[Rfam]
RNA sequence: GUCUGCUGGCUGUAUGAUGAAAUGAAUGUUGGUAGGGACAUCUGAGUCGAUGUGAAGAAACGCCAACUAUUCUGACUCCAUGU
Number, nucleotide and partner (000 for none) at each position: 001g083002u082003c000004u080005g079006c000007u000008g000009g000010c000011u000012g000013u000014a000015u000016g000017a000018u000019g000020a000021a000022a000023u000024g000025a000026a000027u000028g000029u000030u000031g000032g000033u000034a000035g000036g000037g000038a000039c000040a000041u000042c000043u000044g000045a000046g000047u000048c000049g000050a000051u000052g000053u000054g000055a000056a000057g000058a000059a000060a000061c000062g000063c000064c000065a000066a000067c000068u000069a000070u000071u000072c000073u000074g000075a000076c000077u000078c000079c005080a004081u000082g002083u001
Shown here is an 83-nucleotide RNA from Salarias fasciatus, a member of the family "Small nucleolar RNA SNORD74". The match comes from Rfam's covariance-model search (46 bits). A reference for the family is Galardi et al. (2002), "Purified box C/D snoRNPs are able to reproduce site-specific 2'-O-methylation of target RNA in vitro", Mol Cell Biol.